About this RNA: This 46-nucleotide sequence from Gadus morhua belongs to the Rfam family "Histone 3' UTR stem-loop".

[Rfam]
RNA sequence: ACAACGGCUCUUUUAAGAGCCACCCACCACUUUAUUAAAGACGUCU
Numbered sequence: 001a002c003a004a005c006g007g008c009u010c011u012u013u014u015a016a017g018a019g020c021c022a023c024c025c026a027c028c029a030c031u032u033u034a035u036u037a038a039a040g041a042c043g044u045c046u
Base pairs, nucleotide, nucleotide: 006021007020008019009018010017011016
Overview:
The mRNAs of metazoan histone genes lack a poly-A tail. 3' end processing occurs at a site between a highly conserved stem-loop (modelled by this family) and a purine rich region around 20 nts downstream (the histone downstream element, or HDE). It is annotated as a cis-regulatory element. The match comes from Rfam's covariance-model search (38 bits). NCBI's taxonomy places the organism under Eukaryota, Metazoa, Euteleosteomorpha, Gadoidei, Gadus. Its family is annotated with mRNA 3'-end processing by stem-loop binding and cleavage in the Gene Ontology.